[Rfam]
RNA sequence: UCUUCAUUCCUCGUUCUCUCUCACCGGUCAAAGUGACGAGAGAGUGUGUGCGAAAUGAAGAGA
Numbered sequence: 001u002c003u004u005c006a007u008u009c010c011u012c013g014u015u016c017u018c019u020c021u022c023a024c025c026g027g028u029c030a031a032a033g034u035g036a037c038g039a040g041a042g043a044g045u046g047u048g049u050g051c052g053a054a055a056u057g058a059a060g061a062g063a
Base pairs, nucleotide, nucleotide: 001061002060003059004058005057006056007055010052012048013047014046016044017043019041020040021039022038
RNA: mir-8364 microRNA precursor family
Organism: Pristionchus pacificus